[Rfam]
RNA sequence: GGCCUAAAGCGUUCGUAGCCGGUUUGAUAAGUCUUUGGUGAAAGCUUGUAGCUUAACUAUAAGAAUUGCUGAAGAUACUGUCAGACUUGAAGUCGGGAGAGGUUAGAGGUACUACCGGGGUAGGGGUGAAAUCCUAUAAUCCUGGGAGGACCACCUGUGGCGAAGGCGUCUAACUGGAACGAUCUUGACGGUGAGUAACGAAAGCCAGGGGCGCGAACCGGAUUAGAUACCCGGGUAGUCCUGGCCGUAAACGAUGUGGACUUGGUGUUGGAAUGGCCUCGAGUUGUUCCGGUGCCGAAGGGAAGCUGUUAAGUCCACCGCCUGGGAAGUACGGUCGCAAGACUGAAACUUAAAGGAAU
Numbered sequence: 001g002g003c004c005u006a007a008a009g010c011g012u013u014c015g016u017a018g019c020c021g022g023u024u025u026g027a028u029a030a031g032u033c034u035u036u037g038g039u040g041a042a043a044g045c046u047u048g049u050a051g052c053u054u055a056a057c058u059a060u061a062a063g064a065a066u067u068g069c070u071g072a073a074g075a076u077a078c079u080g081u082c083a084g085a086c087u088u089g090a091a092g093u094c095g096g097g098a099g100a101g102g103u104u105a106g107a108g109g110u111a112c113u114a115c116c117g118g119g120g121u122a123g124g125g126g127u128g129a130a131a132u133c134c135u136a137u138a139a140u141c142c143u144g145g146g147a148g149g150a151c152c153a154c155c156u157g158u159g160g161c162g163a164a165g166g167c168g169u170c171u172a173a174c175u176g177g178a179a180c181g182a183u184c185u186u187g188a189c190g191g192u193g194a195g196u197a198a199c200g201a202a203a204g205c206c207a208g209g210g211g212c213g214c215g216a217a218c219c220g221g222a223u224u225a226g227a228u229a230c231c232c233g234g235g236u237a238g239u240c241c242u243g244g245c246c247g248u249a250a251a252c253g254a255u256g257u258g259g260a261c262u263u264g265g266u267g268u269u270g271g272a273a274u275g276g277c278c279u280c281g282a283g284u285u286g287u288u289c290c291g292g293u294g295c296c297g298a299a300g301g302g303a304a305g306c307u308g309u310u311a312a313g314u315c316c317a318c319c320g321c322c323u324g325g326g327a328a329g330u331a332c333g334g335u336c337g338c339a340a341g342a343c344u345g346a347a348a349c350u351u352a353a354a355g356g357a358a359u
Stems, first nucleotide, its partner, number of pairs: 001322003009319001011199003016193001018192003022086007030079002032075009045063007090186003093182003101175007108152002112148002115145005123134003160167002204245006213239002218234004256318006264296014300307002324351003333344004

The family of this 359-nucleotide part of an RNA from Methanosphaera stadtmanae is "Archaeal small subunit ribosomal RNA". For this family Rfam cites "Crystal structure of the ribosome at 5.5 A resolution" (Yusupov et al., Science, 2001). Taxonomically the source falls in Methanosphaera stadtmanae (Archaea, Methanobacteriota, Methanobacteriales, Methanobacteriaceae).